[Rfam]
Nucleotides: 035
Base pairs, nucleotide, nucleotide: 002021003020004019005018010034011033012032
Number, partner (000 for none) and nucleotide at each position: 001000c002021a003020a004019g005018g006000g007000g008000a009000u010034u011033c012032c013000g014000a015000a016000a017000a018005c019004c020003u021002u022000u023000g024000a025000a026000a027000g028000a029000g030000u031000a032012g033011g034010a035000a